[Rfam]
This 257-nucleotide sequence from Bacillus sp. V5-8f belongs to the Rfam family "T-box leader". A reference for the family is Grundy et al. (1994), "Interaction between the acceptor end of tRNA and the T box stimulates antitermination in the Bacillus subtilis tyrS gene: a new role for the discriminator base", J Bacteriol. The family has 48 seed sequences and 19,395 matches in Rfam 15.1. It is annotated as a cis-regulatory leader. The source organism's lineage runs through Bacteria, Bacilli, Caryophanales, Bacillaceae and Bacillus.
Nucleotides: 257
Base pairs, nucleotide, nucleotide: 007106008105015101016100017099018098026089027088028087030085031084037076038075039074048073049072050071051070052069053068108139109138111136112135113134114133141153142152143151171219172218173217174216175215176214177213224254225253226252227251235250236249237248238247
Number, partner (000 for none) and nucleotide at each position: 001000c002000u003000a004000a005000a006000u007106g008105c009000g010000u011000u012000g013000a014000u015101g016100g017099g018098g019000a020000g021000a022000a023000g024000u025000a026089a027088a028087g029000a030085a031084a032000u033000g034000a035000u036000g037076c038075u039074u040000c041000g042000c043000a044000g045000a046000g047000a048073g049072a050071a051070c052069c053068a054000u055000g056000a057000c058000c059000u060000g061000g062000u063000g064000a065000a066000a067000a068053u069052g070051g071050u072049u073048c074039a075038a076037g077000c078000c079000a080000c081000u082000c083000a084031u085030u086000g087028c088027u089026u090000g091000a092000a093000a094000u095000g096000c097000a098018c099017c100016c101015c102000u103000g104000a105008g106007c107000c108139c109138u110000c111136c112135g113134c114133u115000g116000a117000a118000c119000c120000u121000c122000a123000u124000a125000a126000g127000u128000c129000a130000g131000u132000a133114g134113g135112c136111g137000a138109a139108g140000g141153c142152g143151g144000a145000a146000u147000u148000c149000c150000c151143c152142c153141g154000u155000u156000a157000u158000a159000g160000g161000g162000a163000a164000a165000g166000a167000g168000u169000u170000g171219g172218g173217a174216a175215u176214g177213u178000a179000g180000a181000a182000u183000u184000u185000c186000a187000a188000u189000u190000g191000g192000c193000u194000g195000a196000u197000g198000g199000g200000c201000c202000u203000u204000g205000a206000a207000g208000a209000c210000g211000a212000c213177a214176c215175a216174u217173u218172c219171c220000a221000a222000a223000c224254a225253g226252a227251g228000u229000g230000g231000a232000a233000c234000c235250g236249c237248g238247c239000a240000c241000a242000u243000g244000a245000a246000a247238g248237c249236g250235u251227c252226u253225c254224u255000g256000u257000c